[Rfam]
Source information:
A member of the RNA family "Bacterial RNase P class A" from Bifidobacterium pseudolongum, 361 nucleotides long.
RNA sequence: UGAGACCUCUCGAUGGCCGCGACCGCGCUUGCGCGGUUGAGGAACUUCCGGGCUCCACAGAGCACGAUGGCGGAUAACGUCCGCCCAGGGCGACCUGAGAGAUAGCGCAGCAGAGAACAGACCGCCGGCACAUGGGCCGGUAAGGGUGAAACGGCGGUGUAAGAGACCACCGGGCCGCUGGCAACAGUCGGCCGCAUGGCAAGCCUCAUCGGGAGCAAGGCCAAGCAGAAGGCGUUUGAGGGCUGCUCGCCCAAUGCCUUCGGGUAGGCUGCUAGAGCCUGACGGCGACGUCAGGUCGAGAUGGAUGGCCAUCCGUGCCCAUAGGGCACGACAGAACCCGGGGUAUGAGGGGUCUCACUUA
Numbered sequence: 001u002g003a004g005a006c007c008u009c010u011c012g013a014u015g016g017c018c019g020c021g022a023c024c025g026c027g028c029u030u031g032c033g034c035g036g037u038u039g040a041g042g043a044a045c046u047u048c049c050g051g052g053c054u055c056c057a058c059a060g061a062g063c064a065c066g067a068u069g070g071c072g073g074a075u076a077a078c079g080u081c082c083g084c085c086c087a088g089g090g091c092g093a094c095c096u097g098a099g100a101g102a103u104a105g106c107g108c109a110g111c112a113g114a115g116a117a118c119a120g121a122c123c124g125c126c127g128g129c130a131c132a133u134g135g136g137c138c139g140g141u142a143a144g145g146g147u148g149a150a151a152c153g154g155c156g157g158u159g160u161a162a163g164a165g166a167c168c169a170c171c172g173g174g175c176c177g178c179u180g181g182c183a184a185c186a187g188u189c190g191g192c193c194g195c196a197u198g199g200c201a202a203g204c205c206u207c208a209u210c211g212g213g214a215g216c217a218a219g220g221c222c223a224a225g226c227a228g229a230a231g232g233c234g235u236u237u238g239a240g241g242g243c244u245g246c247u248c249g250c251c252c253a254a255u256g257c258c259u260u261c262g263g264g265u266a267g268g269c270u271g272c273u274a275g276a277g278c279c280u281g282a283c284g285g286c287g288a289c290g291u292c293a294g295g296u297c298g299a300g301a302u303g304g305a306u307g308g309c310c311a312u313c314c315g316u317g318c319c320c321a322u323a324g325g326g327c328a329c330g331a332c333a334g335a336a337c338c339c340g341g342g343g344u345a346u347g348a349g350g351g352g353u354c355u356c357a358c359u360u361a
Stems, first nucleotide, its partner, number of pairs: 001357010012313007020039008044344003048341005053215004060248004065211005070084005085099001086097004100206002105204002107200002122145002124141006153171002156168003172195001173193005178187003219270004228261006240252004277296008
Source information
The family's RNA type in Rfam is ribozyme. The base pairs follow the family's consensus structure, which is taken from published work.